[Rfam]
RNA sequence: AGAGCGGACCACGUCUGUUAUUUGUGUGCACUAAUGUACUCAUAACUGUAAGUGUCUGCAAGA
Numbered sequence: 001a002g003a004g005c006g007g008a009c010c011a012c013g014u015c016u017g018u019u020a021u022u023u024g025u026g027u028g029c030a031c032u033a034a035u036g037u038a039c040u041c042a043u044a045a046c047u048g049u050a051a052g053u054g055u056c057u058g059c060a061a062g063a
Stems, first nucleotide, its partner, number of pairs: 004059006017046003023038005
About this RNA: Rfam assigns this 63-nucleotide sequence from Angomonas deanei to the family "Trypanosomatid snoRNA TB10Cs5H2". Gene Ontology terms of the family: nucleolus and RNA processing.